Notes
A member of the RNA family "let-7 microRNA precursor family" from Felis catus, 81 nucleotides long. Rfam's curators write: This family represents the microRNAs (miRNA) let-7 and mir-98. let-7 was identified from a study of developmental timing in C. elegans, and was later shown to be part of a much larger class of non-coding RNAs termed miRNAs. Clan: let-7 microRNA precursor clan. Its family is annotated with miRNA-mediated post-transcriptional gene silencing and RISC complex in the Gene Ontology.
[Rfam]
RNA sequence: GUGGGAUGAGGUAGUAGAUUGUAUAGUUUUAGGGUCAUACCCCAUCUUGGAGAUAACUAUACAGUCUACUGUCUUUCCCAC
Numbered sequence: 001g002u003g004g005g006a007u008g009a010g011g012u013a014g015u016a017g018a019u020u021g022u023a024u025a026g027u028u029u030u031a032g033g034g035u036c037a038u039a040c041c042c043c044a045u046c047u048u049g050g051a052g053a054u055a056a057c058u059a060u061a062c063a064g065u066c067u068a069c070u071g072u073c074u075u076u077c078c079c080a081c
Stems, first nucleotide, its partner, number of pairs: 001081006008075020032043003045052001

It is one of the family's seed sequences.